[Rfam]
RNA: SAM riboswitch aptamer (S box leader)
RNA sequence: CUCUUAUCAAGAGAGGUGGAGGGAAAUGGCCCUGUGAAACCCAGCAACCUACAGUAAUUAAUUUUAAUUAAUAUGUGUGGUGCUAAUUCCUGUAGAUUUUAUCUACAAGAUGAGAA
Number, nucleotide and partner (000 for none) at each position: 001c000002u115003c114004u113005u112006a111007u110008c109009a000010a000011g000012a000013g042014a000015g041016g040017u039018g000019g000020a000021g032022g031023g030024a000025a000026a000027u000028g090029g089030c023031c022032c021033u000034g000035u000036g000037a000038a000039a017040c016041c015042c013043a084044g083045c082046a081047a000048c080049c079050u077051a076052c075053a074054g000055u000056a000057a000058u000059u000060a000061a000062u000063u000064u000065u000066a000067a000068u000069u000070a000071a000072u000073a000074u053075g052076u051077g050078u000079g049080g048081u046082g045083c044084u043085a000086a000087u000088u108089c029090c028091u000092g000093u105094a104095g103096a102097u101098u000099u000100u000101a097102u096103c095104u094105a093106c000107a000108a088109g008110a007111u006112g005113a004114g003115a002116a000